[Rfam]
Description: A member of the RNA family "Bacterial large subunit ribosomal RNA" from a Bathymodiolus septemdierum thioautotrophic gill symbiont, 513 nucleotides of a longer RNA. NCBI's taxonomy places the organism under Bacteria, Pseudomonadati, Pseudomonadota, sulfur-oxidizing symbionts, Bathymodiolus septemdierum thioautotrophic gill symbiont. The family's consensus secondary structure is taken from published work. The match comes from Rfam's covariance-model search (2876 bits).
RNA sequence: GAAUAAGUGCAUACGACGGAUGCCUUGGCAUUAGAAGGCGAUGAAGGACGUGAUAAUCUGCGAUAAGCUUUGGUUAGCUGAUAAUAAGCAUUAUUAGCCAGAGAUCUCCGAAUGGGAAAACCCAGCCACCAUCAGGUGGUUAUCCUUAACUGAAUACAUAGGUUAAGGAGGCAAACCUAGGGAACUGAAACAUCUAAGUACCUAGAGGAAAAGAAAUCAACCGAGAUUCCCUUAGUAGCGGCGAGCGAACGGGGAUCAGCCCUUAAGCAUAUUUUUAGUUAGUAGAAUGUUCUGGAAAGUUCAACGAUACAGGGUGAUAGUCCCGUACACGAAAACUAAAUUUAUGUGAAAUCGAGUAAGGCGGCGCACGUGAAACGCUGUUUGAAUACGGGGGGACCACCCUCCAAGGCUAAAUACUCUCUAAUGACCGAUAGUGAACAAGUACCGUGAGGGAAAGGCGAAAAGAACCCCGGGAGGGGAGUGAAAUAGAACCUGAAAUCGUAUGCAUACAAG
Numbered sequence: 001g002a003a004u005a006a007g008u009g010c011a012u013a014c015g016a017c018g019g020a021u022g023c024c025u026u027g028g029c030a031u032u033a034g035a036a037g038g039c040g041a042u043g044a045a046g047g048a049c050g051u052g053a054u055a056a057u058c059u060g061c062g063a064u065a066a067g068c069u070u071u072g073g074u075u076a077g078c079u080g081a082u083a084a085u086a087a088g089c090a091u092u093a094u095u096a097g098c099c100a101g102a103g104a105u106c107u108c109c110g111a112a113u114g115g116g117a118a119a120a121c122c123c124a125g126c127c128a129c130c131a132u133c134a135g136g137u138g139g140u141u142a143u144c145c146u147u148a149a150c151u152g153a154a155u156a157c158a159u160a161g162g163u164u165a166a167g168g169a170g171g172c173a174a175a176c177c178u179a180g181g182g183a184a185c186u187g188a189a190a191c192a193u194c195u196a197a198g199u200a201c202c203u204a205g206a207g208g209a210a211a212a213g214a215a216a217u218c219a220a221c222c223g224a225g226a227u228u229c230c231c232u233u234a235g236u237a238g239c240g241g242c243g244a245g246c247g248a249a250c251g252g253g254g255a256u257c258a259g260c261c262c263u264u265a266a267g268c269a270u271a272u273u274u275u276u277a278g279u280u281a282g283u284a285g286a287a288u289g290u291u292c293u294g295g296a297a298a299g300u301u302c303a304a305c306g307a308u309a310c311a312g313g314g315u316g317a318u319a320g321u322c323c324c325g326u327a328c329a330c331g332a333a334a335a336c337u338a339a340a341u342u343u344a345u346g347u348g349a350a351a352u353c354g355a356g357u358a359a360g361g362c363g364g365c366g367c368a369c370g371u372g373a374a375a376c377g378c379u380g381u382u383u384g385a386a387u388a389c390g391g392g393g394g395g396a397c398c399a400c401c402c403u404c405c406a407a408g409g410c411u412a413a414a415u416a417c418u419c420u421c422u423a424a425u426g427a428c429c430g431a432u433a434g435u436g437a438a439c440a441a442g443u444a445c446c447g448u449g450a451g452g453g454a455a456a457g458g459c460g461a462a463a464a465g466a467a468c469c470c471c472g473g474g475a476g477g478g479g480a481g482u483g484a485a486a487u488a489g490a491a492c493c494u495g496a497a498a499u500c501g502u503a504u505g506c507a508u509a510c511a512a513g
Base pairs, nucleotide, nucleotide: 007508008507009506010505011504012503013502014501015500016499022493023458024457027429028428029426030425031424032423033422034421035420036418037417038172039171046109047108048107049062050061051060068103069102070101071100072099073098074097077089078088079087114123115122116121124141125140126139127138128137129136130135143169144168145167146166147165148164149163150162151161176207177205178204179203180202181201187194188193217224218223227414228255229254230253231252232251238246239245258411259410260409261408268346269345270344271343274340275339276338277337278336279335280334282330283329288303289302292299306310312324313323314322359383360382361381362380363379364378365377366376390405391404392403393402394401445452446451468479469478470477471476